RNA sequence: UGAUGCCCCUCACCCACUAGCGAAGAUCCCGAGUGGGCGAGGGACCGGAAGGGAUC
Dot-bracket structure: ......(((((.((((((......[[[[[[.)))))).))))).......]]]]]]
Numbered sequence: 001u002g003a004u005g006c007c008c009c010u011c012a013c014c015c016a017c018u019a020g021c022g023a024a025g026a027u028c029c030c031g032a033g034u035g036g037g038c039g040a041g042g043g044a045c046c047g048g049a050a051g052g053g054a055u056c
Stems, first nucleotide, its partner, number of pairs: 007043005013037006025056006